[Rfam]
RNA sequence: GUGGUACUCAAACUAUGGGGGCAAUUUUUGUUCUGGAAUAAAGUGCCGCCAGGUUUUAGGUGCUGC
Numbered sequence: 001g002u003g004g005u006a007c008u009c010a011a012a013c014u015a016u017g018g019g020g021g022c023a024a025u026u027u028u029u030g031u032u033c034u035g036g037a038a039u040a041a042a043g044u045g046c047c048g049c050c051a052g053g054u055u056u057u058a059g060g061u062g063c064u065g066c
Base pairs, nucleotide, nucleotide: 004063005062006061007060008059010057011056012055016051017050018049020047021046022045023044025042026041027040
Shown here is a 66-nucleotide RNA sequence from Cricetulus griseus, a member of the family "mir-290 microRNA precursor family".